[Rfam]
RNA sequence: CCACUCGACGACGAAGAGAUGGUUUCCUACAUCCUGACCGGCCUCAAGUAUGACUACAACCCGGUUGUCUCCGCUGUUCUAGCGCGAGUUGAACCGAUUACCGUCGGCGAGCUGUACUCUCAGCUCCAAAGUUUUGAAC
Numbered sequence: 001c002c003a004c005u006c007g008a009c010g011a012c013g014a015a016g017a018g019a020u021g022g023u024u025u026c027c028u029a030c031a032u033c034c035u036g037a038c039c040g041g042c043c044u045c046a047a048g049u050a051u052g053a054c055u056a057c058a059a060c061c062c063g064g065u066u067g068u069c070u071c072c073g074c075u076g077u078u079c080u081a082g083c084g085c086g087a088g089u090u091g092a093a094c095c096g097a098u099u100a101c102c103g104u105c106g107g108c109g110a111g112c113u114g115u116a117c118u119c120u121c122a123g124c125u126c127c128a129a130a131g132u133u134u135u136g137a138a139c
Stems, first nucleotide, its partner, number of pairs: 005137004088108005

This 139-nucleotide RNA sequence from Eragrostis curvula belongs to the Rfam family "Small nucleolar RNA Z247". It is annotated as a C/D-box small nucleolar RNA. Lineage of the source: Eukaryota > Spermatophyta > Liliopsida > Poales > Eragrostis.